[Rfam]
Nucleotides: 373
Stems, first nucleotide, its partner, number of pairs: 114302005120296001125240006135231003241282002247276003255270005286352001288351005304338009360369003
Number, partner (000 for none) and nucleotide at each position: 001000g002000u003000a004000a005000c006000u007000c008000g009000u010000u011000u012000u013000u014000u015000c016000g017000a018000a019000g020000c021000c022000a023000c024000a025000g026000u027000u028000a029000a030000c031000u032000c033000u034000g035000c036000u037000c038000c039000u040000a041000a042000a043000a044000g045000c046000c047000g048000c049000c050000c051000g052000a053000a054000a055000g056000g057000g058000u059000c060000a061000a062000u063000g064000g065000u066000g067000u068000a069000c070000c071000u072000a073000g074000g075000c076000c077000u078000c079000g080000c081000g082000c083000c084000g085000a086000a087000a088000u089000u090000a091000a092000u093000g094000g095000c096000u097000a098000g099000u100000c101000u102000c103000u104000c105000c106000g107000g108000a109000g110000g111000c112000a113000a114302c115301a116300c117299c118298c119000u120296c121000a122000a123000c124000u125240u126239g127238c128237g129236g130235g131000g132000a133000a134000c135231c136230c137229c138000u139000a140000a141000a142000g143000c144000u145000u146000c147000u148000g149000c150000u151000c152000c153000a154000a155000a156000g157000c158000c159000g160000a161000c162000g163000u164000u165000c166000g167000a168000a169000a170000g171000c172000c173000g174000u175000c176000g177000g178000u179000g180000g181000c182000c183000a184000g185000g186000u187000u188000a189000a190000u191000a192000g193000c194000c195000u196000c197000g198000g199000g200000u201000a202000c203000u204000g205000g206000a207000a208000a209000a210000a211000c212000g213000c214000a215000g216000a217000a218000g219000a220000u221000g222000u223000c224000a225000c226000a227000a228000u229137g230136g231135g232000c233000a234000a235130u236129c237128c238127g239126c240125a241282g242281c243000c244000a245000a246000g247276c248275c249274c250000c251000u252000a253000a254000g255270u256269g257268c258267g259266c260000c261000g262000c263000g264000a265000g266259g267258c268257g269256c270255a271000u272000a273000c274249g275248g276247g277000g278000a279000a280000g281242g282241u283000u284000c285000a286352g287000a288351g289350a290349c291348u292347u293000g294000a295000c296120g297000g298118g299117g300116g301115u302114g303000g304338g305337u306336g307335g308334g309333g310332g311331u312330u313000c314000u315000g316000c317000a318000u319000c320000g321000c322000c323000u324000g325000c326000g327000g328000g329000c330312g331311g332310u333309c334308c335307c336306u337305g338304c339000u340000u341000a342000a343000g344000a345000u346000a347292a348291a349290g350289u351288c352286c353000g354000u355000c356000c357000u358000u359000u360369c361368g362367c363000g364000a365000a366000a367362g368361c369360g370000u371000c372000a373000g